[Rfam]
RNA sequence: GGACGAGCCCUUGGAGAGACUCGAAUUGAGCACCGAAGGAGCAAGCUUGUGAAAACUAGUGAAACUCUCAGGUAAAAGGACAGGGGAUAAUAU
Number, nucleotide and partner (000 for none) at each position: 001g000002g000003a000004c000005g000006a088007g000008c086009c085010c084011u083012u082013g081014g000015a000016g000017a000018g000019a000020c030021u029022c028023g027024a000025a000026u000027u023028g022029a021030g020031c000032a073033c072034c071035g069036a068037a000038g000039g067040a066041g065042c000043a000044a000045g060046c059047u000048u000049g000050u000051g000052a000053a000054a000055a000056c000057u000058a000059g046060u045061g000062a000063a000064a000065c041066u040067c039068u036069c035070a000071g034072g033073u032074a000075a000076a000077a000078g000079g000080a000081c013082a012083g011084g010085g009086g008087a000088u006089a000090a000091u000092a000093u000
Annotation: Rfam assigns this 93-nucleotide RNA sequence from Clostridium estertheticum to the family "Glycine riboswitch aptamer". It scores 65 bits against the family's covariance model. The organism belongs to Clostridium, within Bacteria. The pairing is the family consensus, mapped onto this sequence.